[Rfam]
RNA sequence: UUUGGGAGAUGAUGCGAAUACAUAAUUAUCAAAUGCAUCAGCAAUGCUGAGUUGUCUAUUUGCAUGUCAGUCUGAUCGCAAC
Numbered sequence: 001u002u003u004g005g006g007a008g009a010u011g012a013u014g015c016g017a018a019u020a021c022a023u024a025a026u027u028a029u030c031a032a033a034u035g036c037a038u039c040a041g042c043a044a045u046g047c048u049g050a051g052u053u054g055u056c057u058a059u060u061u062g063c064a065u066g067u068c069a070g071u072c073u074g075a076u077c078g079c080a081a082c
Stems, first nucleotide, its partner, number of pairs: 002081003006077002
The record is an 82-nucleotide sequence from Ziziphus jujuba, which matches "Small nucleolar RNA Z122" in Rfam. Lineage of the source: Eukaryota > Spermatophyta > rosids > fabids > Ziziphus. Rfam links the family to the GO terms nucleolus and RNA processing.